This 90-nucleotide sequence from Flavobacterium pallidum belongs to the Rfam family "Flavo-1 RNA". The family's consensus secondary structure is taken from published work. A search with the family's covariance model found it, with a score of 45 bits.
[Rfam]
RNA sequence: CUGUUGCGUUAGCGAUUACAGCGGAAAUCCUUUUGGAAGGCCGGCGCAGCAAGGCGUUCCAAAAGAUUGCAGCGGAAAGCGCGGGCCGCA
Numbered sequence: 001c002u003g004u005u006g007c008g009u010u011a012g013c014g015a016u017u018a019c020a021g022c023g024g025a026a027a028u029c030c031u032u033u034u035g036g037a038a039g040g041c042c043g044g045c046g047c048a049g050c051a052a053g054g055c056g057u058u059c060c061a062a063a064a065g066a067u068u069g070c071a072g073c074g075g076a077a078a079g080c081g082c083g084g085g086c087c088g089c090a
Base pairs, nucleotide, nucleotide: 012082013081014080016078017077021073022072026068027067028066029065032063033062034061035060036059037058038057

Rfam classes the family as a small RNA.